This 131-nucleotide RNA sequence from Callorhinus ursinus belongs to the Rfam family "Small nucleolar RNA SNORA72". Rfam's curators write: U72 is a member of the H/ACA class of snoRNAs. The snoRNA gene is located in intron 4 of the ribosomal L30 protein gene in human, mouse and chicken. Rfam 15.1 lists 1,541 matches to the family in 547 species. The organism belongs to Callorhinus, within Eukaryota. A search with the family's covariance model found it, with a score of 119 bits. Rfam classes the family as an H/ACA-box small nucleolar RNA. Rfam links the family to the GO terms nucleolus and RNA processing.
RNA sequence: CUGCAAAUAUUCUUGCUGUUCUAAUUUUGUAAUAAUCAGGGGAGGUUAAAUAUACACUAUAUUAAGACCAUGCACGUGUCCCCAGACCUACUUCUUUCUCUAGGUCUGGUUUUAUAAAUGCUGUGAUAAAC
Numbered sequence: 001c002u003g004c005a006a007a008u009a010u011u012c013u014u015g016c017u018g019u020u021c022u023a024a025u026u027u028u029g030u031a032a033u034a035a036u037c038a039g040g041g042g043a044g045g046u047u048a049a050a051u052a053u054a055c056a057c058u059a060u061a062u063u064a065a066g067a068c069c070a071u072g073c074a075c076g077u078g079u080c081c082c083c084a085g086a087c088c089u090a091c092u093u094c095u096u097u098c099u100c101u102a103g104g105u106c107u108g109g110u111u112u113u114a115u116a117a118a119u120g121c122u123g124u125g126a127u128a129a130a131c
Stems, first nucleotide, its partner, number of pairs: 003057001016044002019041004024036003067124002070122001072121002082109009